Rfam assigns this 154-nucleotide sequence from Amborella trichopoda to the family "MIR8565 microRNA precursor family". Rfam links the family to the GO terms miRNA-mediated post-transcriptional gene silencing and RISC complex. A search with the family's covariance model found it, with a score of 144 bits.
RNA sequence: CCCCCACCCAUGUGUAUAGGACCCCAAAGGAUCACUAUUAAAGUUGGUACGGAUCUCUAAAAAAGUUAUCACAUGGGUGUGAGACUUGACUUUUAUAUAGAUCCGUGCCAAAUUUAAUGGUAAUCAUUUGGGAUCCUACACACAUGGGUAGGGG
Numbered sequence: 001c002c003c004c005c006a007c008c009c010a011u012g013u014g015u016a017u018a019g020g021a022c023c024c025c026a027a028a029g030g031a032u033c034a035c036u037a038u039u040a041a042a043g044u045u046g047g048u049a050c051g052g053a054u055c056u057c058u059a060a061a062a063a064a065g066u067u068a069u070c071a072c073a074u075g076g077g078u079g080u081g082a083g084a085c086u087u088g089a090c091u092u093u094u095a096u097a098u099a100g101a102u103c104c105g106u107g108c109c110a111a112a113u114u115u116a117a118u119g120g121u122a123a124u125c126a127u128u129u130g131g132g133a134u135c136c137u138a139c140a141c142a143c144a145u146g147g148g149u150a151g152g153g154g
Stems, first nucleotide, its partner, number of pairs: 002153003006149008015140001017138005023132006030125003034121009044111013058097002061094008069082005